This 79-nucleotide RNA sequence from Denticeps clupeoides belongs to the Rfam family "U1A polyadenylation inhibition element (PIE)".
[Rfam]
RNA sequence: UCUAUAAGCAUUGCACCCAGGGUCUGGUUGUCCAGACAUUGUACCUGGAGCUUUUCGGUCAUUUUUAUUAAAACGUUUU
Numbered sequence: 001u002c003u004a005u006a007a008g009c010a011u012u013g014c015a016c017c018c019a020g021g022g023u024c025u026g027g028u029u030g031u032c033c034a035g036a037c038a039u040u041g042u043a044c045c046u047g048g049a050g051c052u053u054u055u056c057g058g059u060c061a062u063u064u065u066u067a068u069u070a071a072a073a074c075g076u077u078u079u
Stems, first nucleotide, its partner, number of pairs: 006053004017048004022037005
About the family: This family represents the U1A polyadenylation inhibition element (PIE). PIE is a regulatory RNA which is responsible for the regulation of the length of the polyA tail of the U1A pre-mRNA. The PIE is located in the U1A mRNA 3' UTR. PIE adopts a U-shaped structure, with binding sites for a single U1A protein at each bend and when complexed with the two proteins it blocks activity of poly(A) polymerase (PAP), and inhibits its activity. The organism belongs to Denticeps, within Eukaryota. A search with the family's covariance model found it, with a score of 66 bits. The literature on the family includes a 2000 paper in Nat Struct Biol by Varani et al., "The NMR structure of the 38 kDa U1A protein - PIE RNA complex reveals the basis of cooperativity in regulation of polyadenylation by human U1A protein".